[Rfam]
RNA sequence: GACGAGCGCAAGCCAGUCUCUCAAGACGUCGAUUCGUCGGCGUCGCCUCCUCUUGCAUGUGGGAAAUUCGGAGUAUGCUUCAACGUCGCCUCCCGCCUCGCCACUUCCGCGCAAGGGCCCGUCCCUACGUGGUUUUGGCUUGGACGGAUAGGUCUGCCAGUAAUGGCCUUGCGUCACUCGACGUUUGCAAAUGACAUCAGAAAUCUCAGAGCCUGGGCCGUCUCGUGCAUACCCGCAAGGGGAAGACGGGUGCGCGUCCCAGGUCUCUAUGGGAAGUCUUUGCGGAGCUUGUUGGGACUACAACUGAAGUGCGAUACGCGGCGUCUUGUCUUCUUGGGGCUUGCCUCGGGAGGCAGGAUGACUCAAUUCCGAUCACUCUGUCAAGGGC
Numbered sequence: 001g002a003c004g005a006g007c008g009c010a011a012g013c014c015a016g017u018c019u020c021u022c023a024a025g026a027c028g029u030c031g032a033u034u035c036g037u038c039g040g041c042g043u044c045g046c047c048u049c050c051u052c053u054u055g056c057a058u059g060u061g062g063g064a065a066a067u068u069c070g071g072a073g074u075a076u077g078c079u080u081c082a083a084c085g086u087c088g089c090c091u092c093c094c095g096c097c098u099c100g101c102c103a104c105u106u107c108c109g110c111g112c113a114a115g116g117g118c119c120c121g122u123c124c125c126u127a128c129g130u131g132g133u134u135u136u137g138g139c140u141u142g143g144a145c146g147g148a149u150a151g152g153u154c155u156g157c158c159a160g161u162a163a164u165g166g167c168c169u170u171g172c173g174u175c176a177c178u179c180g181a182c183g184u185u186u187g188c189a190a191a192u193g194a195c196a197u198c199a200g201a202a203a204u205c206u207c208a209g210a211g212c213c214u215g216g217g218c219c220g221u222c223u224c225g226u227g228c229a230u231a232c233c234c235g236c237a238a239g240g241g242g243a244a245g246a247c248g249g250g251u252g253c254g255c256g257u258c259c260c261a262g263g264u265c266u267c268u269a270u271g272g273g274a275a276g277u278c279u280u281u282g283c284g285g286a287g288c289u290u291g292u293u294g295g296g297a298c299u300a301c302a303a304c305u306g307a308a309g310u311g312c313g314a315u316a317c318g319c320g321g322c323g324u325c326u327u328g329u330c331u332u333c334u335u336g337g338g339g340c341u342u343g344c345c346u347c348g349g350g351a352g353g354c355a356g357g358a359u360g361a362c363u364c365a366a367u368u369c370c371g372a373u374c375a376c377u378c379u380g381u382c383a384a385g386g387g388c
Stems, first nucleotide, its partner, number of pairs: 001388001003386001008381003014321001016319002019316001022059002025056001026043006069371005078287004171184005187283005193277001208268003323359012

The family of this 388-nucleotide RNA from Ilyonectria sp. MPI-CAGE-AT-0026 is "Nuclear RNase P". Taxonomically the source falls in Ilyonectria (Eukaryota, Fungi, sordariomyceta, Nectriaceae).